[Rfam]
RNA: Bacterial RNase P class B
RNA sequence: AGCUUUGGGUAAUCGAGCGUAGCAAAUGUUACGUUAGGAAGGUCCAUGCUCGCACAGGCUGCGAUGCCUGUAGUGUUUGUGCCCGCUGAAAAAAUAAGGCGGGGCACCCAUUUGGGUGACGGCGGAAAAACCGGCUAAGGCUUUGGCUAUGCCCUAGUAUUCCUGAAAAGUGCCACAGUGACGAUGUAGUAGGGGAAACCUUACUAGUGGAACGCGGUAAACCCCUCAAGCGGUAAACCCAAACAUUGGUAGGGGAGCUUUGGAUAACAAAUUGAAGUGAUUCCAGGGGAGUAUCUUUGAUACUGAGAUAGAUGAUUACCACGGUAUGAUUGGACCUGCAAUGAUACUUUGACAAAACAUGGCCUACAGAA
Numbered sequence: 001a002g003c004u005u006u007g008g009g010u011a012a013u014c015g016a017g018c019g020u021a022g023c024a025a026a027u028g029u030u031a032c033g034u035u036a037g038g039a040a041g042g043u044c045c046a047u048g049c050u051c052g053c054a055c056a057g058g059c060u061g062c063g064a065u066g067c068c069u070g071u072a073g074u075g076u077u078u079g080u081g082c083c084c085g086c087u088g089a090a091a092a093a094a095u096a097a098g099g100c101g102g103g104g105c106a107c108c109c110a111u112u113u114g115g116g117u118g119a120c121g122g123c124g125g126a127a128a129a130a131c132c133g134g135c136u137a138a139g140g141c142u143u144u145g146g147c148u149a150u151g152c153c154c155u156a157g158u159a160u161u162c163c164u165g166a167a168a169a170g171u172g173c174c175a176c177a178g179u180g181a182c183g184a185u186g187u188a189g190u191a192g193g194g195g196a197a198a199c200c201u202u203a204c205u206a207g208u209g210g211a212a213c214g215c216g217g218u219a220a221a222c223c224c225c226u227c228a229a230g231c232g233g234u235a236a237a238c239c240c241a242a243a244c245a246u247u248g249g250u251a252g253g254g255g256a257g258c259u260u261u262g263g264a265u266a267a268c269a270a271a272u273u274g275a276a277g278u279g280a281u282u283c284c285a286g287g288g289g290a291g292u293a294u295c296u297u298u299g300a301u302a303c304u305g306a307g308a309u310a311g312a313u314g315a316u317u318a319c320c321a322c323g324g325u326a327u328g329a330u331u332g333g334a335c336c337u338g339c340a341a342u343g344a345u346a347c348u349u350u351g352a353c354a355a356a357a358c359a360u361g362g363c364c365u366a367c368a369g370a371a
Stems, first nucleotide, its partner, number of pairs: 004371003007367001008320007016035006040365003044362005050233004054071006077229003081225001082103006104120001105118005121224002124163004133153003139148003170222002172218003187206008238254003258288007290304005324347004329342004